RNA sequence: CCUCUGUUACGUAUACUGAAGGUAUACCGGAAAGAAUGAUGCACUCAGGAUACAUUCAGUAUACGUACAGAAG
Numbered sequence: 001c002c003u004c005u006g007u008u009a010c011g012u013a014u015a016c017u018g019a020a021g022g023u024a025u026a027c028c029g030g031a032a033a034g035a036a037u038g039a040u041g042c043a044c045u046c047a048g049g050a051u052a053c054a055u056u057c058a059g060u061a062u063a064c065g066u067a068c069a070g071a072a073g
Stems, first nucleotide, its partner, number of pairs: 003071004009066012022053004027049002030046002034042001

Rfam assigns this 73-nucleotide RNA from Operophtera brumata to the family "mir-iab-4 microRNA precursor family". The organism belongs to Operophtera, within Eukaryota. The literature on the family includes a 2010 paper in Nat Genet by Berezikov et al., "Evolutionary flux of canonical microRNAs and mirtrons in Drosophila".